[Rfam]
RNA sequence: UCUAAAUGAUGAUUGUCUUUAUAUGUUUAAACUUUUCUUUCUGGCAUCUCUAAUGUUAGGGCUUUUCAGCUCGAUGAAUACAACCCUUGACUAGUAUCUGAAA
Numbered sequence: 001u002c003u004a005a006a007u008g009a010u011g012a013u014u015g016u017c018u019u020u021a022u023a024u025g026u027u028u029a030a031a032c033u034u035u036u037c038u039u040u041c042u043g044g045c046a047u048c049u050c051u052a053a054u055g056u057u058a059g060g061g062c063u064u065u066u067c068a069g070c071u072c073g074a075u076g077a078a079u080a081c082a083a084c085c086c087u088u089g090a091c092u093a094g095u096a097u098c099u100g101a102a103a
Stems, first nucleotide, its partner, number of pairs: 060071004
Dot-bracket structure: ...........................................................((((....))))................................
This 103-nucleotide RNA from [Candida] boidinii belongs to the Rfam family "Small nucleolar RNA snR48". A reference for the family is Lowe and Eddy (1999), "A computational screen for methylation guide snoRNAs in yeast", Science. Taxonomically the source falls in Ogataea (Eukaryota, Dikarya, Saccharomycotina, Pichiaceae). Its Rfam clan is "SNORD60 clan". It scores 73 bits against the family's covariance model. Pairs were carried over by alignment from the consensus structure, which was predicted with ILM.